[Rfam]
A member of the RNA family "Glutamine riboswitch aptamer (glnA leader)", 122 nucleotides long. Its family is annotated with glutamine binding in the Gene Ontology. The sequence is in the family's curated seed alignment.
RNA sequence: UUCGUUCAUCUUAUAUUUUAUAUAAGACGGAAGUAGGAAACCUGAAAACCUCUUUCUAUUCAGAAAGGCAAGCAAGUACCCGCAAGGGGAACGAGACCGAAAGUUUACCGAAGGAACGCUAU
Numbered sequence: 001u002u003c004g005u006u007c008a009u010c011u012u013a014u015a016u017u018u019u020a021u022a023u024a025a026g027a028c029g030g031a032a033g034u035a036g037g038a039a040a041c042c043u044g045a046a047a048a049c050c051u052c053u054u055u056c057u058a059u060u061c062a063g064a065a066a067g068g069c070a071a072g073c074a075a076g077u078a079c080c081c082g083c084a085a086g087g088g089g090a091a092c093g094a095g096a097c098c099g100a101a102a103g104u105u106u107a108c109c110g111a112a113g114g115a116a117c118g119c120u121a122u
Stems, first nucleotide, its partner, number of pairs: 003118005009027007030119001036109002
Dot-bracket structure: ..(((((.(((((((.....)))))))..[.....((......................................................................))....)))))]...